[Rfam]
RNA sequence: AUUGGUGUUCUAGAAAGAUGUUUGCUUUCAUUUGCUGAACAUCUUACUUUCUAUAAUAUCCUCAAGGCCAUACAACUUAUUAUAUUUAAAAAAUUUCAAGACUCAUAUUUGCAGUAACAGGUGUGAGCAUUCUAGCAGCAGUAUGAUGAGCAUGUAUGAUACUGCAAACAGAA
Dot-bracket structure: .(((....(.((((((((((.(((...........))).)))))....)))))..)......)))..............(((.(((.....))).).))........(((((((((.((....((..((((...((....))..))))..))....)).))))))))).....
RNA: Small Cajal body specific RNA 16